Shown here is an 83-nucleotide sequence from Thalictrum thalictroides, a member of the family "Small nucleolar RNA Z102/R77". Rfam classes the family as a C/D-box small nucleolar RNA. Pairs were carried over by alignment from the consensus structure, which was predicted with PFOLD. Gene Ontology terms of the family: nucleolus and RNA processing. It scores 69 bits against the family's covariance model.

RNA sequence: GAAUGAUAUGAUGAUUAGAUUAACCUAUUGGUUUGAUCGCCGGUAUGAUGGCGCUAAUAUCUCUAAUUUCUUUCUGAUCAUUC
Numbered sequence: 001g002a003a004u005g006a007u008a009u010g011a012u013g014a015u016u017a018g019a020u021u022a023a024c025c026u027a028u029u030g031g032u033u034u035g036a037u038c039g040c041c042g043g044u045a046u047g048a049u050g051g052c053g054c055u056a057a058u059a060u061c062u063c064u065a066a067u068u069u070c071u072u073u074c075u076g077a078u079c080a081u082u083c
Stems, first nucleotide, its partner, number of pairs: 002082004035055001038053004